[Rfam]
RNA sequence: AGAGUCUUUCUUCGGGGCGGAGCUCGACCGCCAGCACAAGAAGUAGCCGCCUUCAUCGACGCCAACCGCGACGACGUGGUCGCCGGCAGGCGUCUGGGGGUCGAGCUCAUCUGCAGCGUGCUGCAGGUGGCCCCC
Numbered sequence: 001a002g003a004g005u006c007u008u009u010c011u012u013c014g015g016g017g018c019g020g021a022g023c024u025c026g027a028c029c030g031c032c033a034g035c036a037c038a039a040g041a042a043g044u045a046g047c048c049g050c051c052u053u054c055a056u057c058g059a060c061g062c063c064a065a066c067c068g069c070g071a072c073g074a075c076g077u078g079g080u081c082g083c084c085g086g087c088a089g090g091c092g093u094c095u096g097g098g099g100g101u102c103g104a105g106c107u108c109a110u111c112u113g114c115a116g117c118g119u120g121c122u123g124c125a126g127g128u129g130g131c132c133c134c135c
Base pairs, nucleotide, nucleotide: 016032017031018030019029020028096135097134098133099132100131107130108129110127111126112125113124114123115122116121
ALIL pseudoknot: a 135-nucleotide RNA sequence from Nocardioides sp. GY 10127. For this family Rfam cites "Apical loop-internal loop RNA pseudoknots: a new type of stimulator of -1 translational frameshifting in bacteria" (Mazauric et al., J Biol Chem, 2008). The source organism's lineage runs through Bacteria, Bacillati, Actinomycetota, Nocardioidaceae and Nocardioides. A search with the family's covariance model found it, with a score of 58 bits. Rfam classes the family as a cis-regulatory element.